[Rfam]
RNA sequence: CCCUUCCUUGUCUUGGGGAGCAUAAUAUCCAAUGAACGAAUAGUGAGGGUAUUGAUGCUGGCACCCACAUUGAUACGAGCCUUUCGCGCUCGCACUUAAACCCCCGCUCGGGUGGCCGCUUUCGAACAGUGCGCUACCUGGGCGGAAUUUUUGGAACG
Numbered sequence: 001c002c003c004u005u006c007c008u009u010g011u012c013u014u015g016g017g018g019a020g021c022a023u024a025a026u027a028u029c030c031a032a033u034g035a036a037c038g039a040a041u042a043g044u045g046a047g048g049g050u051a052u053u054g055a056u057g058c059u060g061g062c063a064c065c066c067a068c069a070u071u072g073a074u075a076c077g078a079g080c081c082u083u084u085c086g087c088g089c090u091c092g093c094a095c096u097u098a099a100a101c102c103c104c105c106g107c108u109c110g111g112g113u114g115g116c117c118g119c120u121u122u123c124g125a126a127c128a129g130u131g132c133g134c135u136a137c138c139u140g141g142g143c144g145g146a147a148u149u150u151u152u153g154g155a156a157c158g
Base pairs, nucleotide, nucleotide: 005019006018007017008016009015020058021057022056023055024053025052026051027050028049029048030047036044037043104145105144106143107142108141109140113136114135115134116133118132119131